A member of the RNA family "T-box leader" from Lachnospiraceae bacterium OM04-12BH, 260 nucleotides long. Rfam classes the family as a cis-regulatory leader. Rfam's curators write: Uncharged tRNA acts as the effector for transcription antitermination of genes in the T-box leader family. T-boxes are found upstream of many aminoacyl-tRNA synthetase genes and some amino acid biosynthetic genes usually in Gram-positive bacteria. The anticodon of a specific tRNA base pairs to a specifier sequence within the T-box motif, and the NCCA acceptor tail of the tRNA base pairs to a conserved bulge in the T-box antiterminator hairpin.
[Rfam]
RNA sequence: UGAAAUGCAAAGAAGAGGAGUAGUAACCCUACGCUGGAAAGCAGAGAACUGCCGGUUGGUGCGAGACAGUCAGAAGCAGAAGGAGAACUCACCUUGGAGCAGCUGACUGAAGGCCGAUGAGUGUGAUGCAUGGCUGUGUAGGUUCAGACGGGAUCCUGCCGUAGAAGAGGGAAGGACAUAUCCUGAUCAGGAACGUGUCUGAUGAGAGCAUGGAAUACCAUGAAGUAGAGUGGUACCGCGUAAGAUUUUACGUCUCUACA
Numbered sequence: 001u002g003a004a005a006u007g008c009a010a011a012g013a014a015g016a017g018g019a020g021u022a023g024u025a026a027c028c029c030u031a032c033g034c035u036g037g038a039a040a041g042c043a044g045a046g047a048a049c050u051g052c053c054g055g056u057u058g059g060u061g062c063g064a065g066a067c068a069g070u071c072a073g074a075a076g077c078a079g080a081a082g083g084a085g086a087a088c089u090c091a092c093c094u095u096g097g098a099g100c101a102g103c104u105g106a107c108u109g110a111a112g113g114c115c116g117a118u119g120a121g122u123g124u125g126a127u128g129c130a131u132g133g134c135u136g137u138g139u140a141g142g143u144u145c146a147g148a149c150g151g152g153a154u155c156c157u158g159c160c161g162u163a164g165a166a167g168a169g170g171g172a173a174g175g176a177c178a179u180a181u182c183c184u185g186a187u188c189a190g191g192a193a194c195g196u197g198u199c200u201g202a203u204g205a206g207a208g209c210a211u212g213g214a215a216u217a218c219c220a221u222g223a224a225g226u227a228g229a230g231u232g233g234u235a236c237c238g239c240g241u242a243a244g245a246u247u248u249u250a251c252g253u254c255u256c257u258a259c260a
Stems, first nucleotide, its partner, number of pairs: 007100002015095004027083002030080001034073003048070004053065001103147004107142002149161003209222005227257004238253005